The record is a 50-nucleotide RNA from Streptomyces corynorhini, which matches "raiA-hairpin RNA" in Rfam.
Pairs were carried over by alignment from the consensus structure, which is taken from published work.
[Rfam]
RNA sequence: CGCCAAGUCCGGAAGGCUCCGGCGAUGACUGGGGCCUGGUGCAACAGGGA
Numbered sequence: 001c002g003c004c005a006a007g008u009c010c011g012g013a014a015g016g017c018u019c020c021g022g023c024g025a026u027g028a029c030u031g032g033g034g035c036c037u038g039g040u041g042c043a044a045c046a047g048g049g050a
Base pairs, nucleotide, nucleotide: 015036016035017034018033019032020031021030022029

It scores 52 bits against the family's covariance model.